[Rfam]
RNA sequence: GCGAUGAGCUAAUUUGCAUAAGACAAGGGACGCGCCUUCGUGCACGAACGGAUGUGGCCGUUCGGUUCCUUGCCGCAAACGCAUCAAAGACGCCUGAUUAUUCAGGCGUC
Numbered sequence: 001g002c003g004a005u006g007a008g009c010u011a012a013u014u015u016g017c018a019u020a021a022g023a024c025a026a027g028g029g030a031c032g033c034g035c036c037u038u039c040g041u042g043c044a045c046g047a048a049c050g051g052a053u054g055u056g057g058c059c060g061u062u063c064g065g066u067u068c069c070u071u072g073c074c075g076c077a078a079a080c081g082c083a084u085c086a087a088a089g090a091c092g093c094c095u096g097a098u099u100a101u102u103c104a105g106g107c108g109u110c
Stems, first nucleotide, its partner, number of pairs: 014078004024072008034043002045064002048061003089110009
Shown here is a 110-nucleotide sequence from Bacillus sp. cl95, a member of the family "BsrF". Taxonomically the source falls in Bacillus (Bacteria, Bacillati, Bacilli, Bacillaceae). Rfam classes the family as a small RNA.